The record is a 228-nucleotide part of an RNA from Actinobaculum sp. 352, which matches "Bacterial large subunit ribosomal RNA" in Rfam.
RNA sequence: GAGUUAGUGAUGCGUGGCGAGGUUAACCCGUGUGGGGUAGUCGUAGCGAAAGCGAGUCUGAAGAGGGCGUGAGUCGCGUGUUCUAGACCCGAAGCGGGGUGAUCUACCCAUGGCCAGGGUGAAGCUCGUGUAAGAGCGUGUGGAGGCCCGAACCCACCAGGGUUGAAAACCUGGGGGAUGAGUUGUGGGUAGGGGUGAAAGGCCAAUCAAACUCCGUGAUAGCUGGUU
Numbered sequence: 001g002a003g004u005u006a007g008u009g010a011u012g013c014g015u016g017g018c019g020a021g022g023u024u025a026a027c028c029c030g031u032g033u034g035g036g037g038u039a040g041u042c043g044u045a046g047c048g049a050a051a052g053c054g055a056g057u058c059u060g061a062a063g064a065g066g067g068c069g070u071g072a073g074u075c076g077c078g079u080g081u082u083c084u085a086g087a088c089c090c091g092a093a094g095c096g097g098g099g100u101g102a103u104c105u106a107c108c109c110a111u112g113g114c115c116a117g118g119g120u121g122a123a124g125c126u127c128g129u130g131u132a133a134g135a136g137c138g139u140g141u142g143g144a145g146g147c148c149c150g151a152a153c154c155c156a157c158c159a160g161g162g163u164u165g166a167a168a169a170c171c172u173g174g175g176g177g178a179u180g181a182g183u184u185g186u187g188g189g190u191a192g193g194g195g196u197g198a199a200a201g202g203c204c205a206a207u208c209a210a211a212c213u214c215c216g217u218g219a220u221a222g223c224u225g226g227u228u
Stems, first nucleotide, its partner, number of pairs: 005085003009082010021042004027036003046053002056068004088226002091223001095216006104192011115180001117149004124141002127138003153177003157174005194204003
Taxonomically the source falls in Actinobaculum (Bacteria, Bacillati, Actinomycetes, Actinomycetales). It scores 2516 bits against the family's covariance model.